[Rfam]
RNA sequence: AGGUGUUGUCAAUAAAUGCGUAACUAUGGUAACUCUGUAGUCAUUCGUUAGACCUAUGAAGAUAAAUGAUUCAGUUAUGAAGUCCAUAAGCCAAGUGAUUAGCCUCGUGAUUAUUAGUGUGGUGGUGAUUAUUAUCCCACCGUGCGGGGCAGCACUUGGAAAAAGAAAGACCUGAUUAGAGGUCCAAAAUUCAAGAACCCCCGCACUGAAAAGUCGGGGGUUUUUUUAUGACAAUAAAAAGUUAGAACCAGCAGAAAGCAGAUCGGAAAAAUACUAUAAAAAUCUGCUUAGAGAAUAAGAU
Numbered sequence: 001a002g003g004u005g006u007u008g009u010c011a012a013u014a015a016a017u018g019c020g021u022a023a024c025u026a027u028g029g030u031a032a033c034u035c036u037g038u039a040g041u042c043a044u045u046c047g048u049u050a051g052a053c054c055u056a057u058g059a060a061g062a063u064a065a066a067u068g069a070u071u072c073a074g075u076u077a078u079g080a081a082g083u084c085c086a087u088a089a090g091c092c093a094a095g096u097g098a099u100u101a102g103c104c105u106c107g108u109g110a111u112u113a114u115u116a117g118u119g120u121g122g123u124g125g126u127g128a129u130u131a132u133u134a135u136c137c138c139a140c141c142g143u144g145c146g147g148g149g150c151a152g153c154a155c156u157u158g159g160a161a162a163a164a165g166a167a168a169g170a171c172c173u174g175a176u177u178a179g180a181g182g183u184c185c186a187a188a189a190u191u192c193a194a195g196a197a198c199c200c201c202c203g204c205a206c207u208g209a210a211a212a213g214u215c216g217g218g219g220g221u222u223u224u225u226u227u228a229u230g231a232c233a234a235u236a237a238a239a240a241g242u243u244a245g246a247a248c249c250a251g252c253a254g255a256a257a258g259c260a261g262a263u264c265g266g267a268a269a270a271a272u273a274c275u276a277u278a279a280a281a282a283u284c285u286g287c288u289u290a291g292a293g294a295a296u297a298a299g300a301u
Stems, first nucleotide, its partner, number of pairs: 005033007016021001037078005045069004049062001087254001093243002099237003102232001104230001107227001110118002121141005127136003143160001145158004162191002169184005193225011205214003257288007265277001267275001
This 301-nucleotide sequence from Budvicia aquatica belongs to the Rfam family "Soft rot Enterobacteriaceae Rev 39 5'UTR". Its family is annotated with cellular response to starvation in the Gene Ontology. The literature on the family includes a 2016 paper in BMC Genomics by Kwenda et al., "Discovery and profiling of small RNAs responsive to stress conditions in the plant pathogen Pectobacterium atrosepticum". Taxonomically the source falls in Budvicia (Bacteria, Gammaproteobacteria, Enterobacterales, Budviciaceae). By type it is a cis-regulatory element. From the family's description: From bacteria cultured under starvation conditions. The match comes from Rfam's covariance-model search (117 bits).